[Rfam]
RNA: mir-395 microRNA precursor family
Organism: Oryza meyeriana
Nucleotides: 112
Stems, first nucleotide, its partner, number of pairs: 005108005011102007019094002022092001024090009034080003
Number, partner (000 for none) and nucleotide at each position: 001000u002000u003000g004000u005108u006107a007106c008105c009104u010000g011102g012101a013100g014099u015098u016097c017096c018000c019094u020093c021000a022092a023000c024090a025089c026088g027087c028086u029085u030084c031083a032082c033000a034080g035079c036078u037000g038000c039000u040000a041000g042000g043000c044000c045000c046000u047000a048000c049000u050000a051000u052000a053000a054000u055000c056000g057000c058000a059000c060000a061000a062000u063000g064000u065000g066000a067000g068000g069000u070000c071000u072000a073000c074000c075000a076000u077000g078036g079035g080034u081000a082032g083031u084030g085029a086028a087027g088026u089025g090024u091000u092022u093020g094019g095000a096017g097016g098015a099014a100013c101012u102011c103000u104009a105008g106007g107006u108005g109000g110000c111000a112000c